[Rfam]
RtT RNA: a 136-nucleotide RNA sequence from Shimwellia blattae. A reference for the family is Bosl and Kersten (1991), "A novel RNA product of the tyrT operon of Escherichia coli", Nucleic Acids Res. The organism belongs to Shimwellia blattae, within Bacteria. About the family: This family represents a bacterial cis-regulatory element known as RtT RNA. The exact function of RtT is unknown although it is thought that it may be involved in changing the cellular response in relation to amino acid starvation.
Nucleotides: 136
Base pairs, nucleotide, nucleotide: 015127016126017125018124019123020122021121023119033095036092040090042088043087047065048064049063050062051061052060053059071083072082073081074080075079
Number, partner (000 for none) and nucleotide at each position: 001000c002000u003000c004000c005000c006000u007000g008000g009000c010000c011000u012000g013000a014000c015127g016126u017125g018124c019123a020122g021121g022000a023119u024000g025000a026000g027000a028000a029000c030000c031000u032000g033095c034000a035000g036092c037000a038000g039000g040090u041000u042088c043087g044000a045000c046000u047065g048064a049063a050062u051061c052060g053059c054000c055000g056000g057000g058000a059053g060052c061051g062050a063049u064048u065047c066000a067000g068000g069000c070000u071083g072082a073081u074080g075079c076000g077000c078000a079075g080074c081073a082072u083071c084000a085000c086000c087043c088042g089000c090040a091000g092036g093000g094000c095033g096000a097000g098000g099000c100000c101000c102000c103000g104000g105000a106000c107000g108000g109000g110000c111000c112000g113000a114000g115000g116000c117000a118000u119023a120000u121021c122020c123019u124018g125017c126016a127015c128000g129000a130000c131000c132000c133000a134000c135000c136000a